[Rfam]
RNA sequence: CAUAAGCACUGGGAGAGUUGGAUAGGCCAACUGAGAGAAAGACCCUAUAAAGUCUUUGAUCCCCAUUCACCUGAUCUGGGUAAUACCAGCGUAGGAAAGUGUAUUGUAUAAGUA
Numbered sequence: 001c002a003u004a005a006g007c008a009c010u011g012g013g014a015g016a017g018u019u020g021g022a023u024a025g026g027c028c029a030a031c032u033g034a035g036a037g038a039a040a041g042a043c044c045c046u047a048u049a050a051a052g053u054c055u056u057u058g059a060u061c062c063c064c065a066u067u068c069a070c071c072u073g074a075u076c077u078g079g080g081u082a083a084u085a086c087c088a089g090c091g092u093a094g095g096a097a098a099g100u101g102u103a104u105u106g107u108a109u110a111a112g113u114a
Base pairs, nucleotide, nucleotide: 006102007101008100009099010098011064012063013062017031018030019029020028021027038057039056040055041054042053070095071094072093073092076089077088078087079086
Dot-bracket structure: .....((((((((...(((((.....)))))......(((((..........)))))....))).....((((..((((......))))..))))..)))))............
Record summary: This 114-nucleotide RNA from Alkaliphilus serpentinus belongs to the Rfam family "TPP riboswitch aptamer (THI element)". A search with the family's covariance model found it, with a score of 71 bits. The family's consensus secondary structure is taken from published work. The organism belongs to Alkaliphilus, within Bacteria.